[Rfam]
RNA sequence: CCUCCUUUUCUUGGCAGGGACCGGGCUUGUGGUCCCACUCCCUGUAAUGUACAGAGGAAGAAAGGGCUCUGCCCGCCUCGGCAUCAUGUCUUCAGUGCCGGUGGCUUCCCAUCCUCUGGUUCUAUCCUCAAGCGCCAAGACACAG
Numbered sequence: 001c002c003u004c005c006u007u008u009u010c011u012u013g014g015c016a017g018g019g020a021c022c023g024g025g026c027u028u029g030u031g032g033u034c035c036c037a038c039u040c041c042c043u044g045u046a047a048u049g050u051a052c053a054g055a056g057g058a059a060g061a062a063a064g065g066g067c068u069c070u071g072c073c074c075g076c077c078u079c080g081g082c083a084u085c086a087u088g089u090c091u092u093c094a095g096u097g098c099c100g101g102u103g104g105c106u107u108c109c110c111a112u113c114c115u116c117u118g119g120u121u122c123u124a125u126c127c128u129c130a131a132g133c134g135c136c137a138a139g140a141c142a143c144a145g
Base pairs, nucleotide, nucleotide: 001057002056003055004054015044016043017042018041019040020039023036024035025034080136081135082134084132098119099118100117101116103114104113
RNA: Small nucleolar RNA SNORA57